A member of the RNA family "Bacterial large signal recognition particle RNA" from Salinibacillus xinjiangensis, 266 nucleotides long. Rfam classes the family as a non-coding RNA gene. The organism belongs to Salinibacillus, within Bacteria. For this family Rfam cites "Prediction of signal recognition particle RNA genes" (Regalia et al., Nucleic Acids Res, 2002). The family's consensus secondary structure is taken from published work. Gene Ontology terms of the family: SRP-dependent cotranslational protein targeting to membrane, signal sequence recognition and signal recognition particle, plasma membrane targeting.

[Rfam]
RNA sequence: CCGUGCUAGGUGGGGAGGUAGCGGUGCCUUGUCACUCGCAAUCCGCUAUAGCGAGGCUGAAUCCCUAUCCGAGGUGGACAUUUUUAAGGUCUGCCGCAAGUGAAUAGUGUUGACACCUGGGUCCUGCGCAACGGGAACCCGUGAACCCUGUCAGGUCCGGAAGGAAGCAGCAGUAAGCGGUCAUUCCUGUGUGCCGCGGGAUAGCCUGGGUCGAGCUAUGAGCUUGCGUAACGCUUAGGAAUGUUUCAUCGACGAUAGGUGCACGG
Numbered sequence: 001c002c003g004u005g006c007u008a009g010g011u012g013g014g015g016a017g018g019u020a021g022c023g024g025u026g027c028c029u030u031g032u033c034a035c036u037c038g039c040a041a042u043c044c045g046c047u048a049u050a051g052c053g054a055g056g057c058u059g060a061a062u063c064c065c066u067a068u069c070c071g072a073g074g075u076g077g078a079c080a081u082u083u084u085u086a087a088g089g090u091c092u093g094c095c096g097c098a099a100g101u102g103a104a105u106a107g108u109g110u111u112g113a114c115a116c117c118u119g120g121g122u123c124c125u126g127c128g129c130a131a132c133g134g135g136a137a138c139c140c141g142u143g144a145a146c147c148c149u150g151u152c153a154g155g156u157c158c159g160g161a162a163g164g165a166a167g168c169a170g171c172a173g174u175a176a177g178c179g180g181u182c183a184u185u186c187c188u189g190u191g192u193g194c195c196g197c198g199g200g201a202u203a204g205c206c207u208g209g210g211u212c213g214a215g216c217u218a219u220g221a222g223c224u225u226g227c228g229u230a231a232c233g234c235u236u237a238g239g240a241a242u243g244u245u246u247c248a249u250c251g252a253c254g255a256u257a258g259g260u261g262c263a264c265g266g
Stems, first nucleotide, its partner, number of pairs: 001266006009058003012030004017025001019023001035055005064259006073250005079243010092230002096227006106217003115211008123200006129191002132189005139180004148173004156165003